Shown here is a 173-nucleotide sequence, a member of the family "Burkholderia RNA 14". The family has 3 seed sequences and 98 matches in Rfam 15.1. Rfam describes the family as follows. Co-purified with Hfq, expression confirmed by Northern blot. Putative functional homologue of PA-SraF. Overlaps coding sequence. Rfam links the family to the GO term protein binding. Pairs were carried over by alignment from the consensus structure, which was predicted with RNAfold. The literature on the family includes a 2013 paper in Genomics by Ramos et al., "Experimental identification of small non-coding regulatory RNAs in the opportunistic human pathogen Burkholderia cenocepacia J2315".

RNA sequence: GUCGGCGUGGUGACGCUCGAGCCUAGGCCGGUCCCGGUGGUCACCGAACUGCCGGGUCGCACGAGUGCCUAUCUCGUCGCGCAAGUGCGUGCGCGCGUGGACGGCAUCGUGCAGCGCCGUGAAUUCACCGAGGGCACAGAAGUCAAGGCCGGCCAACGGCUCUACAAGAUCGA
Numbered sequence: 001g002u003c004g005g006c007g008u009g010g011u012g013a014c015g016c017u018c019g020a021g022c023c024u025a026g027g028c029c030g031g032u033c034c035c036g037g038u039g040g041u042c043a044c045c046g047a048a049c050u051g052c053c054g055g056g057u058c059g060c061a062c063g064a065g066u067g068c069c070u071a072u073c074u075c076g077u078c079g080c081g082c083a084a085g086u087g088c089g090u091g092c093g094c095g096c097g098u099g100g101a102c103g104g105c106a107u108c109g110u111g112c113a114g115c116g117c118c119g120u121g122a123a124u125u126c127a128c129c130g131a132g133g134g135c136a137c138a139g140a141a142g143u144c145a146a147g148g149c150c151g152g153c154c155a156a157c158g159g160c161u162c163u164a165c166a167a168g169a170u171c172g173a
Stems, first nucleotide, its partner, number of pairs: 003054005008047001010045001011043004015038002018036002021033001023031002055150004059143002065137004072133001074131002078093005094121002097118001100115001102114001104112003157172002160168002